[Rfam]
This 275-nucleotide RNA sequence from Oryza glumipatula belongs to the Rfam family "MIR821 microRNA precursor family".
For this family Rfam cites "Rice embryogenic calli express a unique set of microRNAs, suggesting regulatory roles of microRNAs in plant post-embryogenic development" (Luo et al., FEBS Lett, 2006).
It scores 250 bits against the family's covariance model.
The organism belongs to Oryza, within Eukaryota.
RNA sequence: GAUUUCAACCGAAAAAGUCAUUAGCAACAAAGUUGUAUAACUCAUCAAGAUUUACAACUUUUAUUUUGGUCAUUUCUUCAUCCGACAAAGUAAUAGUAACAUUGUUAACAAAAUUUACAUAUCUCUCUUAUAGUUUAUAAAACUCUACGAGAGAUAUGUAAAUUUUGUGAACAAUGUUACUAUCACUUUGUCGGAUGAAGAAAUGACUAAAAUAAAAGUUGUAUGUCUUCAUGAGUUCUACAUCUUUUAUGUUUAUGACUUUUUCAACUGAAAUU
Numbered sequence: 001g002a003u004u005u006c007a008a009c010c011g012a013a014a015a016a017g018u019c020a021u022u023a024g025c026a027a028c029a030a031a032g033u034u035g036u037a038u039a040a041c042u043c044a045u046c047a048a049g050a051u052u053u054a055c056a057a058c059u060u061u062u063a064u065u066u067u068g069g070u071c072a073u074u075u076c077u078u079c080a081u082c083c084g085a086c087a088a089a090g091u092a093a094u095a096g097u098a099a100c101a102u103u104g105u106u107a108a109c110a111a112a113a114u115u116u117a118c119a120u121a122u123c124u125c126u127c128u129u130a131u132a133g134u135u136u137a138u139a140a141a142a143c144u145c146u147a148c149g150a151g152a153g154a155u156a157u158g159u160a161a162a163u164u165u166u167g168u169g170a171a172c173a174a175u176g177u178u179a180c181u182a183u184c185a186c187u188u189u190g191u192c193g194g195a196u197g198a199a200g201a202a203a204u205g206a207c208u209a210a211a212a213u214a215a216a217a218g219u220u221g222u223a224u225g226u227c228u229u230c231a232u233g234a235g236u237u238c239u240a241c242a243u244c245u246u247u248u249a250u251g252u253u254u255a256u257g258a259c260u261u262u263u264u265c266a267a268c269u270g271a272a273a274u275u
Stems, first nucleotide, its partner, number of pairs: 014262008023253002026250001030246003034242004039237004044232002047229005053223001055221013069207007077199005083193009094182006101175006108168005114162002117159006132144005